RNA sequence: GUUCUUAUGAGUAAGGAAAAUAACGAUUCGGGGUGACGCCCGAGUCCUCACUGCUUAUGUGAGACGAAAUUUUGAGCGGGUAUAGGUUGCAAUCUGAGGCGACCCGCCUACUUUGCGGGAUGCCUGGCGCGAUCUGCCCG
Numbered sequence: 001g002u003u004c005u006u007a008u009g010a011g012u013a014a015g016g017a018a019a020a021u022a023a024c025g026a027u028u029c030g031g032g033g034u035g036a037c038g039c040c041c042g043a044g045u046c047c048u049c050a051c052u053g054c055u056u057a058u059g060u061g062a063g064a065c066g067a068a069a070u071u072u073u074g075a076g077c078g079g080g081u082a083u084a085g086g087u088u089g090c091a092a093u094c095u096g097a098g099g100c101g102a103c104c105c106g107c108c109u110a111c112u113u114u115g116c117g118g119g120a121u122g123c124c125u126g127g128c129g130c131g132a133u134c135u136g137c138c139c140g
Stems, first nucleotide, its partner, number of pairs: 001012001025046008047063005077140005084135007094127001097125005103119005